Annotation
Shown here is a 106-nucleotide RNA sequence from Brevibacterium linens, a member of the family "TPP riboswitch aptamer (THI element)". Gene Ontology term of the family: thiamine pyrophosphate binding. Taxonomically the source falls in Brevibacterium (Bacteria, Actinomycetota, Micrococcales, Brevibacteriaceae).
[Rfam]
RNA sequence: GAAUCACUACAGGGGAGCGCCGAUCAACGGGCGCUGAGAGUGCGAAUGCAGACCCUUUGAACCUGAUCCGGUGAGCACCGGCGGAGGGAGUGGAAGAGAGAUGACA
Numbered sequence: 001g002a003a004u005c006a007c008u009a010c011a012g013g014g015g016a017g018c019g020c021c022g023a024u025c026a027a028c029g030g031g032c033g034c035u036g037a038g039a040g041u042g043c044g045a046a047u048g049c050a051g052a053c054c055c056u057u058u059g060a061a062c063c064u065g066a067u068c069c070g071g072u073g074a075g076c077a078c079c080g081g082c083g084g085a086g087g088g089a090g091u092g093g094a095a096g097a098g099a100g101a102u103g104a105c106a
Base pairs, nucleotide, nucleotide: 007093008092009091010090011056012055013054014053017034018033019032020031021030041050042049043048062087063086064085068081069080070079071078